[Rfam]
RNA sequence: CCAUACUAGCCGGGGAAUUAGCGGUGCCCUGUAUCCACAACCCGCUCUAGUGGAGGUGAAUCUGAGCUUGAGGGGUAAUUUGGUAUAAAGCCUUCAGGCAGCGGCGUUGAGAAAAAAGUCCUAUAUUGCAGGAUGUCGGUGAAUCGUGUCAGGUCGGGAACGAAGCAGCACUAAGUCGAAAGUUUCUGGGUUUGUAGGGUAGCUUUUUUUGAGCCUUUGUCUGUCGAAACAUAUAUUGAGUUAUUUCGAGAGUUCGGUGUAUGG
Numbered sequence: 001c002c003a004u005a006c007u008a009g010c011c012g013g014g015g016a017a018u019u020a021g022c023g024g025u026g027c028c029c030u031g032u033a034u035c036c037a038c039a040a041c042c043c044g045c046u047c048u049a050g051u052g053g054a055g056g057u058g059a060a061u062c063u064g065a066g067c068u069u070g071a072g073g074g075g076u077a078a079u080u081u082g083g084u085a086u087a088a089a090g091c092c093u094u095c096a097g098g099c100a101g102c103g104g105c106g107u108u109g110a111g112a113a114a115a116a117a118g119u120c121c122u123a124u125a126u127u128g129c130a131g132g133a134u135g136u137c138g139g140u141g142a143a144u145c146g147u148g149u150c151a152g153g154u155c156g157g158g159a160a161c162g163a164a165g166c167a168g169c170a171c172u173a174a175g176u177c178g179a180a181a182g183u184u185u186c187u188g189g190g191u192u193u194g195u196a197g198g199g200u201a202g203c204u205u206u207u208u209u210u211g212a213g214c215c216u217u218u219g220u221c222u223g224u225c226g227a228a229a230c231a232u233a234u235a236u237u238g239a240g241u242u243a244u245u246u247c248g249a250g251a252g253u254u255c256g257g258u259g260u261a262u263g264g
Stems, first nucleotide, its partner, number of pairs: 001264006009057003012030004017025003034054005063257001064255006072247005078241010093228002095223004101218001103215003111210009120198006126190002129188005136179005146171004154163003
A member of the RNA family "Bacterial large signal recognition particle RNA" from Sebaldella termitidis, 264 nucleotides long. NCBI's taxonomy places the organism under Bacteria, Fusobacteriati, Leptotrichiaceae, Sebaldella, Sebaldella termitidis. The family's RNA type in Rfam is non-coding RNA gene. The base pairs follow the family's consensus structure, which is taken from published work.